[Rfam]
A member of the RNA family "Flavo-1 RNA" from Oceanihabitans sp. IOP_32, 87 nucleotides long.
The family's RNA type in Rfam is small RNA.
RNA sequence: AUUUAACCGAGAAGCGCGUUAAGGAUUGUAAAGGAAAUCCUUUUUUGAGGCAGGAGAAAAAGAUUGAAUUGAAAAGCCUGACCCACC
Numbered sequence: 001a002u003u004u005a006a007c008c009g010a011g012a013a014g015c016g017c018g019u020u021a022a023g024g025a026u027u028g029u030a031a032a033g034g035a036a037a038u039c040c041u042u043u044u045u046u047g048a049g050g051c052a053g054g055a056g057a058a059a060a061a062g063a064u065u066g067a068a069u070u071g072a073a074a075a076g077c078c079u080g081a082c083c084c085a086c087c
Base pairs, nucleotide, nucleotide: 022079023078024077026075027074031070032069036065037064038063039062042060043059044058045057046056